[Rfam]
RNA: Bacterial RNase P class A
Organism: Sphingomonas sp. HDW15A
RNA sequence: CUAGGGGGCUGGGCGGCCGCGGCUCACGCAAGUGAGGCGAGGAAAGUCCGGGCUCCACGGAACGACGGUGCCGGGUAACGCCCGGCCAGGGGUUCGCCCCUGAGGGACAGUGCCACAGAAAGCAUACCGCCCGGCUUAGGCCGGGUAAGGUCGAAAGGGUGCGGCAAGAGCGCACCGCGUCGCUGGCAACAGUGGCGGCACGGCAAACCCCACCGGGUGCAAGACCGAAUAGGGGCGGCAUAUGGGCCUGUUCCGGCUCGUCGCCCGGGUUGGUCGCUUGAGGCAUGGGGCAACCCAUGUCCUAGAAGAAUGGUCGCCCAGGCGCCGCCAGGCGCUGGACAGAACCCGGCUUACAGGUCCCCUAGCAUU
Number, nucleotide and partner (000 for none) at each position: 001c365002u364003a363004g362005g361006g360007g359008g358009c357010u356011g354012g318013g317014c316015g315016g314017c313018c312019g000020c039021g038022g000023c036024u035025c034026a033027c032028g000029c000030a000031a000032g027033u026034g025035a024036g023037g000038c021039g020040a000041g000042g000043a000044a352045a351046g350047u000048c349049c348050g347051g346052g345053c219054u000055c217056c216057a000058c000059g000060g000061a000062a252063c000064g000065a000066c215067g214068g213069u212070g211071c085072c084073g083074g082075g081076u000077a000078a000079c000080g000081c075082c074083c073084g072085g071086c104087c102088a101089g100090g099091g098092g097093u000094u000095c000096g000097c092098c091099c090100c089101u088102g087103a000104g086105g210106g209107a000108c000109a000110g208111u207112g204113c203114c202115a000116c000117a000118g000119a000120a000121a000122g000123c000124a000125u000126a000127c150128c149129g146130c145131c144132c143133g142134g141135c140136u000137u000138a000139g000140g135141c134142c133143g132144g131145g130146u129147a000148a000149g128150g127151u000152c000153g000154a000155a000156a000157g000158g176159g175160u174161g173162c172163g171164g000165c000166a000167a000168g000169a000170g000171c163172g162173c161174a160175c159176c158177g199178c197179g196180u195181c194182g193183c192184u191185g190186g000187c000188a000189a000190c185191a184192g183193u182194g181195g180196c179197g178198g000199c177200a000201c000202g114203g113204c112205a000206a000207a111208c110209c106210c105211c070212a069213c068214c067215g066216g056217g055218u000219g053220c000221a000222a000223g275224a274225c273226c272227g000228a000229a000230u000231a000232g000233g266234g265235g264236c263237g262238g261239c000240a000241u000242a000243u000244g259245g258246g257247c256248c255249u000250g000251u000252u062253c000254c000255g248256g247257c246258u245259c244260g000261u238262c237263g236264c235265c234266c233267g000268g000269g000270u000271u000272g226273g225274u224275c223276g000277c000278u000279u000280g000281a000282g301283g300284c299285a298286u297287g296288g295289g294290g000291c000292a000293a000294c289295c288296c287297a286298u285299g284300u283301c282302c000303u000304a000305g000306a000307a000308g000309a000310a000311u000312g018313g017314u016315c015316g014317c013318c012319c000320a000321g000322g000323c000324g000325c000326c000327g000328c000329c000330a000331g000332g000333c000334g000335c000336u000337g000338g000339a000340c000341a000342g000343a000344a000345c052346c051347c050348g049349g048350c046351u045352u044353a000354c011355a000356g010357g009358u008359c007360c006361c005362c004363u003364a002365g001366c000367a000368u000369u000